[Rfam]
RNA sequence: AGCCGUGUGGUGAGCACAGAGCGAACUAUUCUUUCGCCUUUUACUAAAGAAUACCGUGUGCGCGCCACUCUUAGCGGCAUACGCCUAUUUUUGGAGAGGUGCUCGUAUUGAGUACCU
Numbered sequence: 001a002g003c004c005g006u007g008u009g010g011u012g013a014g015c016a017c018a019g020a021g022c023g024a025a026c027u028a029u030u031c032u033u034u035c036g037c038c039u040u041u042u043a044c045u046a047a048a049g050a051a052u053a054c055c056g057u058g059u060g061c062g063c064g065c066c067a068c069u070c071u072u073a074g075c076g077g078c079a080u081a082c083g084c085c086u087a088u089u090u091u092u093g094g095a096g097a098g099g100u101g102c103u104c105g106u107a108u109u110g111a112g113u114a115c116c117u
Base pairs, nucleotide, nucleotide: 003077004076005075006074008067009066010065011064012063014061015060016059017058018057027053028052029051030050031049032048033047034046095117098116099115100114101113102112103111